[Rfam]
RNA sequence: UCAUUGCGAGGAUGAAUUGUGAACAAACUUCGCAUGUCAGACUUCAGAGAUGCUUCAAGCAUCCAUGAGAAGACGUCGUACGACUGAGCAAUGC
Numbered sequence: 001u002c003a004u005u006g007c008g009a010g011g012a013u014g015a016a017u018u019g020u021g022a023a024c025a026a027a028c029u030u031c032g033c034a035u036g037u038c039a040g041a042c043u044u045c046a047g048a049g050a051u052g053c054u055u056c057a058a059g060c061a062u063c064c065a066u067g068a069g070a071a072g073a074c075g076u077c078g079u080a081c082g083a084c085u086g087a088g089c090a091a092u093g094c
Stems, first nucleotide, its partner, number of pairs: 002093006049063004
Small nucleolar RNA R64/Z200 family: a 94-nucleotide RNA sequence from Oryza meyeriana. Taxonomically the source falls in Oryza meyeriana (Eukaryota, Embryophyta, Spermatophyta, Liliopsida). The family's RNA type in Rfam is C/D-box small nucleolar RNA. A reference for the family is Marker et al. (2002), "Experimental RNomics: identification of 140 candidates for small non-messenger RNAs in the plant Arabidopsis thaliana", Curr Biol. It scores 77 bits against the family's covariance model.